Small nucleolar RNA snoR109: an 89-nucleotide sequence from Centaurea solstitialis.
Its family is annotated with RNA processing and nucleolus in the Gene Ontology.
The base pairs follow the family's consensus structure, which was predicted with WAR.
The source organism's lineage runs through Eukaryota, Magnoliopsida, Gunneridae, campanulids and Centaurea.
The family has 6 seed sequences and 680 matches in Rfam 15.1.
On this family, see Marker et al., Curr Biol 2002: "Experimental RNomics: identification of 140 candidates for small non-messenger RNAs in the plant Arabidopsis thaliana".
A search with the family's covariance model found it, with a score of 40 bits.
RNA sequence: UUGCUGCAUUGUACUUUCUCUUGAAGUUUUACUCGCCGGUUGUCAUUUCAAAUUUGCAGACAAAUCUGCUUACCGAACUUCAUAUAUGU
Numbered sequence: 001u002u003g004c005u006g007c008a009u010u011g012u013a014c015u016u017u018c019u020c021u022u023g024a025a026g027u028u029u030u031a032c033u034c035g036c037c038g039g040u041u042g043u044c045a046u047u048u049c050a051a052a053u054u055u056g057c058a059g060a061c062a063a064a065u066c067u068g069c070u071u072a073c074c075g076a077a078c079u080u081c082a083u084a085u086a087u088g089u
Stems, first nucleotide, its partner, number of pairs: 022082007035069002038066004042061003